[Rfam]
RNA sequence: CCUUCCGUGAUGAUUUUAUCAAAAUGACUUUCGUUCUUCUGAGUUUGCUGAAGCCGCAUUCGAUUGCUGAGGGGG
Numbered sequence: 001c002c003u004u005c006c007g008u009g010a011u012g013a014u015u016u017u018a019u020c021a022a023a024a025u026g027a028c029u030u031u032c033g034u035u036c037u038u039c040u041g042a043g044u045u046u047g048c049u050g051a052a053g054c055c056g057c058a059u060u061c062g063a064u065u066g067c068u069g070a071g072g073g074g075g
Stems, first nucleotide, its partner, number of pairs: 001075003005071001
Source information: Small nucleolar RNA SNORD59: a 75-nucleotide sequence from Microtus ochrogaster. The family's RNA type in Rfam is C/D-box small nucleolar RNA. The literature on the family includes a 2002 paper in Mol Cell Biol by Galardi et al., "Purified box C/D snoRNPs are able to reproduce site-specific 2'-O-methylation of target RNA in vitro".